[Rfam]
Nucleotides: 121
Stems, first nucleotide, its partner, number of pairs: 001027002004025006011018002053060002076121001078120005087113003096105001097103001
Number, partner (000 for none) and nucleotide at each position: 001027a002026c003000u004025a005024u006023a007022g008021u009020a010000c011018g012017c013000c014000a015000c016000a017012g018011c019000c020009u021008a022007c023006u024005a025004u026002g027001u028000u029000g030000a031000u032000c033000u034000u035000u036000a037000c038000g039000a040000u041000c042000a043000g044000c045000u046000u047000c048000u049000a050000u051000c052000c053060g054059c055000u056000u057000c058000g059054g060053c061000a062000a063000a064000u065000a066000c067000a068000a069000a070000a071000c072000u073000u074000a075000g076121a077000u078120u079119u080118g081117a082116u083000g084000u085000a086000u087113u088112g089111c090000a091000g092000a093000g094000u095000a096105u097103u098000g099000a100000a101000a102000u103097a104000u105096a106000a107000a108000a109000a110000c111089g112088c113087a114000u115000u116082g117081u118080c119079a120078a121076u